Notes:
Rfam assigns this 242-nucleotide RNA sequence from Thiomonas sp. X19 to the family "Group II catalytic intron D1-D4-6". Gene Ontology term of the family: Group II intron splicing. Group II introns are found in rRNA, tRNA and mRNA of organelles in fungi, plants and protists, and also in mRNA in bacteria.
[Rfam]
RNA sequence: AGAGUCAUACGUUGAAGGCUUAGCCAGCUACGGCGGCCCCGAGUCAUGCGUGCACAUUCGUGAGGAUGUGGGCGAAGCGUUGACAGGGGUACGCGCGGGCCGGGUAUCGAGCCGCGUAAUACAUGCCCCGUGGCGAGAGCUGCGGGUGGUCCGGGGUGCCGAGGCAGUAGGAGCUUGCCGAAGGCCACACCGAUGCUGCCGCUUUGGCGAGGCGGCAUCGGACCCCGCGCGGUCAGAGACCU
Numbered sequence: 001a002g003a004g005u006c007a008u009a010c011g012u013u014g015a016a017g018g019c020u021u022a023g024c025c026a027g028c029u030a031c032g033g034c035g036g037c038c039c040c041g042a043g044u045c046a047u048g049c050g051u052g053c054a055c056a057u058u059c060g061u062g063a064g065g066a067u068g069u070g071g072g073c074g075a076a077g078c079g080u081u082g083a084c085a086g087g088g089g090u091a092c093g094c095g096c097g098g099g100c101c102g103g104g105u106a107u108c109g110a111g112c113c114g115c116g117u118a119a120u121a122c123a124u125g126c127c128c129c130g131u132g133g134c135g136a137g138a139g140c141u142g143c144g145g146g147u148g149g150u151c152c153g154g155g156g157u158g159c160c161g162a163g164g165c166a167g168u169a170g171g172a173g174c175u176u177g178c179c180g181a182a183g184g185c186c187a188c189a190c191c192g193a194u195g196c197u198g199c200c201g202c203u204u205u206g207g208c209g210a211g212g213c214g215g216c217a218u219c220g221g222a223c224c225c226c227g228c229g230c231g232g233u234c235a236g237a238g239a240c241c242u
Stems, first nucleotide, its partner, number of pairs: 010035005017029004021210001023208002037089004043084004047079002049074003053070007108236001109234001111233006152227006158185003163179004190221011
Source information:
A search with the family's covariance model found it, with a score of 174 bits.